[Rfam]
RNA sequence: UAGUGAGGUAGAGGCGCGAUAUUUAACAGUCUUUAGAGGAGCUUGAGAGUGCUGUGAUACUAAAGAGAAGGAAAUGUCGCCGAAGUGUGUAAUAGUUCUCGAUGUUACAUGCUGGGUCUGCAGUGAAUAAUUGCAGGACUGUCUCAAUAAAUUGCCUAGUUUAUUGAGUUGUGCUAUCUCAUCA
Numbered sequence: 001u002a003g004u005g006a007g008g009u010a011g012a013g014g015c016g017c018g019a020u021a022u023u024u025a026a027c028a029g030u031c032u033u034u035a036g037a038g039g040a041g042c043u044u045g046a047g048a049g050u051g052c053u054g055u056g057a058u059a060c061u062a063a064a065g066a067g068a069a070g071g072a073a074a075u076g077u078c079g080c081c082g083a084a085g086u087g088u089g090u091a092a093u094a095g096u097u098c099u100c101g102a103u104g105u106u107a108c109a110u111g112c113u114g115g116g117u118c119u120g121c122a123g124u125g126a127a128u129a130a131u132u133g134c135a136g137g138a139c140u141g142u143c144u145c146a147a148u149a150a151a152u153u154g155c156c157u158a159g160u161u162u163a164u165u166g167a168g169u170u171g172u173g174c175u176a177u178c179u180c181a182u183c184a
Stems, first nucleotide, its partner, number of pairs: 006179006016080009031065006038058001084113011114140002117137008143168009
RNA: Lysine riboswitch aptamer